This 415-nucleotide part of an RNA from Brugia malayi belongs to the Rfam family "Eukaryotic large subunit ribosomal RNA". Taxonomically the source falls in Brugia (Eukaryota, Bilateria, Nematoda, Spirurina). The family is grouped with related families in Rfam's "LSU clan". Gene Ontology terms of the family: structural constituent of ribosome and ribosome. The literature on the family includes a 2001 paper in Science by Yusupov et al., "Crystal structure of the ribosome at 5.5 A resolution".

RNA sequence: AUGUUGUUGCGAUAGUAAUCCUGCUCAGUACGAGAGGAACCGCAGGUUCAGACAUUUGGUUCAUGUGCUUGGCCGAUCGGCCAAUGGUGCGAAGCUACCAUCUGAGGGAUUAUGACUGAACGCCUCUAAGUCAGAAUCCCACCUAGACAAGGCAACGAUAAAUUUGCUCCCUGAUGUCGGGAGGCACUAUUAUGUAAUUAUGAACAUAUUCAUACUAUUACAGCUAAUGCCCCAUUAUAUGGCCUUGCUAUUUAAUCGAAUGGUUAAAUGGUUGCCAAAACCGGAUUACUCUGGUACAAUGUCGGGGCGCAAGAUCACUUGCAGACGACUUGAUUACUGGUCAAGGUGUUGUAAGCAGUAGAGCAGCCUCCAUACUGCGAUCUGUUGAGACUUAUCCUUUGAUUGGACGAUUUGU
Numbered sequence: 001a002u003g004u005u006g007u008u009g010c011g012a013u014a015g016u017a018a019u020c021c022u023g024c025u026c027a028g029u030a031c032g033a034g035a036g037g038a039a040c041c042g043c044a045g046g047u048u049c050a051g052a053c054a055u056u057u058g059g060u061u062c063a064u065g066u067g068c069u070u071g072g073c074c075g076a077u078c079g080g081c082c083a084a085u086g087g088u089g090c091g092a093a094g095c096u097a098c099c100a101u102c103u104g105a106g107g108g109a110u111u112a113u114g115a116c117u118g119a120a121c122g123c124c125u126c127u128a129a130g131u132c133a134g135a136a137u138c139c140c141a142c143c144u145a146g147a148c149a150a151g152g153c154a155a156c157g158a159u160a161a162a163u164u165u166g167c168u169c170c171c172u173g174a175u176g177u178c179g180g181g182a183g184g185c186a187c188u189a190u191u192a193u194g195u196a197a198u199u200a201u202g203a204a205c206a207u208a209u210u211c212a213u214a215c216u217a218u219u220a221c222a223g224c225u226a227a228u229g230c231c232c233c234a235u236u237a238u239a240u241g242g243c244c245u246u247g248c249u250a251u252u253u254a255a256u257c258g259a260a261u262g263g264u265u266a267a268a269u270g271g272u273u274g275c276c277a278a279a280a281c282c283g284g285a286u287u288a289c290u291c292u293g294g295u296a297c298a299a300u301g302u303c304g305g306g307g308c309g310c311a312a313g314a315u316c317a318c319u320u321g322c323a324g325a326c327g328a329c330u331u332g333a334u335u336a337c338u339g340g341u342c343a344a345g346g347u348g349u350u351g352u353a354a355g356c357a358g359u360a361g362a363g364c365a366g367c368c369u370c371c372a373u374a375c376u377g378c379g380a381u382c383u384g385u386u387g388a389g390a391c392u393u394a395u396c397c398u399u400u401g402a403u404u405g406g407a408c409g410a411u412u413u414g415u
Base pairs, nucleotide, nucleotide: 003159004158005157006156007155008154009153010152013145014144015143018048020046021045022044023043024042049104050103051102052101057097058096059095064091065090066089067088068087069084070083071082072081073080074079106140107139108138113133114132115131116130117129169307170306171305172304173303174302175301176300177299312413313412314411315410316409318332321329338405339404340403341402342401343400344398345397346396348391349390355385356384357383358382360381363378364377365376366375